[Rfam]
RNA sequence: CGAUGCCUGAAUGGAAGAUUCGACUAGUACGAAAGGAACAGCGAUUCGGCGUCACUAGUUAGCGGUUAUCCGACAGGGUACGCCGCGUAGCCACACGCUAUGGGAUAAGAGCUGAAGGCAUCUAAGCUCGAAACCCUCCGUAAAAAUAGGCAUCGUUGAGGCUGGGGAAGAAGACCCCGUUGAUAGAAUCGGCGUGUAAGGACCAAGGCGAAAGCCGAGAUCUUCAGCGCACGAUUACUAAUCAGCCAAAACUU
Numbered sequence: 001c002g003a004u005g006c007c008u009g010a011a012u013g014g015a016a017g018a019u020u021c022g023a024c025u026a027g028u029a030c031g032a033a034a035g036g037a038a039c040a041g042c043g044a045u046u047c048g049g050c051g052u053c054a055c056u057a058g059u060u061a062g063c064g065g066u067u068a069u070c071c072g073a074c075a076g077g078g079u080a081c082g083c084c085g086c087g088u089a090g091c092c093a094c095a096c097g098c099u100a101u102g103g104g105a106u107a108a109g110a111g112c113u114g115a116a117g118g119c120a121u122c123u124a125a126g127c128u129c130g131a132a133a134c135c136c137u138c139c140g141u142a143a144a145a146a147u148a149g150g151c152a153u154c155g156u157u158g159a160g161g162c163u164g165g166g167g168a169a170g171a172a173g174a175c176c177c178c179g180u181u182g183a184u185a186g187a188a189u190c191g192g193c194g195u196g197u198a199a200g201g202a203c204c205a206a207g208g209c210g211a212a213a214g215c216c217g218a219g220a221u222c223u224u225c226a227g228c229g230c231a232c233g234a235u236u237a238c239u240a241a242u243c244a245g246c247c248a249a250a251a252c253u254u
Stems, first nucleotide, its partner, number of pairs: 001155008011141004017047002020044003048099005056093001058091001062086005067080005102136003109129005160247004164178004184240003187236005192230003200223003204219001207216001